[Rfam]
The record is a 209-nucleotide RNA from Sinocyclocheilus grahami, which matches "Small nucleolar RNA SNORD17" in Rfam. The match comes from Rfam's covariance-model search (49 bits). From the family's description: The snoRNA HBI-43 belongs to the C/D family of snoRNAs, guiding 2'O-ribose methylation at position U3797 of the 28S rRNA. Pseudouridylation in position U3797 is predicted to be guided by the H/ACA snoRNA ACA48. Taxonomically the source falls in Sinocyclocheilus (Eukaryota, Otophysi, Cypriniphysae, Cyprininae). The family's consensus secondary structure was predicted with RNAalifold. The family has 19 seed sequences and 1,015 matches in Rfam 15.1. Gene Ontology terms of the family: RNA processing and nucleolus.
RNA sequence: GUGGCGUGAUGAACGUGUUUAUCCAUUCGCUGAGCGCUGCUGGUUCUGUCCCUCAGCGGCCGUGCGGUCCGUUCUGGGUCGCAGGGUCACAGCUGUCUGGUUCUGCUCCGCUGGUCCAAUGUUCUUUUGGGUCACUGGCGUGGGAUCUGAUGUGCUGGUGCGAGGGGUCAGACCGGUUCUGACAAAGAUGAAUAGACGUGUCUGAUCAC
Numbered sequence: 001g002u003g004g005c006g007u008g009a010u011g012a013a014c015g016u017g018u019u020u021a022u023c024c025a026u027u028c029g030c031u032g033a034g035c036g037c038u039g040c041u042g043g044u045u046c047u048g049u050c051c052c053u054c055a056g057c058g059g060c061c062g063u064g065c066g067g068u069c070c071g072u073u074c075u076g077g078g079u080c081g082c083a084g085g086g087u088c089a090c091a092g093c094u095g096u097c098u099g100g101u102u103c104u105g106c107u108c109c110g111c112u113g114g115u116c117c118a119a120u121g122u123u124c125u126u127u128u129g130g131g132u133c134a135c136u137g138g139c140g141u142g143g144g145a146u147c148u149g150a151u152g153u154g155c156u157g158g159u160g161c162g163a164g165g166g167g168u169c170a171g172a173c174c175g176g177u178u179c180u181g182a183c184a185a186a187g188a189u190g191a192a193u194a195g196a197c198g199u200g201u202c203u204g205a206u207c208a209c
Base pairs, nucleotide, nucleotide: 010208011207012206014204017201018200020198023195025193026192027191028190029189030187031186034183039177040176041175042174045172046171047170048169050167051166052164053163054162058088059087060086061085063083064082065081066080067079068078069077070076091156092155093154095153096152103144104143105141108138109137110136112134113133115131116130117129118128119127121125